[Rfam]
RNA sequence: GGUGGUUCCCGGGUGAUGCACCCGGAAUCAGGCUCCCUUCUCUCUGGUUCUGGGGUGCAUCACCCAAGAAUCGCA
Numbered sequence: 001g002g003u004g005g006u007u008c009c010c011g012g013g014u015g016a017u018g019c020a021c022c023c024g025g026a027a028u029c030a031g032g033c034u035c036c037c038u039u040c041u042c043u044c045u046g047g048u049u050c051u052g053g054g055g056u057g058c059a060u061c062a063c064c065c066a067a068g069a070a071u072c073g074c075a
Base pairs, nucleotide, nucleotide: 002074003073005071006070007069008068011065012064013063014062015061016060017059019057020056021055022054023053024051025050026049027048028047029046030045031044032043